[Rfam]
RNA: Glutamine-II riboswitch aptamer
RNA sequence: AUUCGUUCACCCUAAUAGGGCGCAGUCCGAGCUAUACCAUGGAACGGGGGAUAGC
Numbered sequence: 001a002u003u004c005g006u007u008c009a010c011c012c013u014a015a016u017a018g019g020g021c022g023c024a025g026u027c028c029g030a031g032c033u034a035u036a037c038c039a040u041g042g043a044a045c046g047g048g049g050g051a052u053a054g055c
Stems, first nucleotide, its partner, number of pairs: 004046005010020003031055005037049002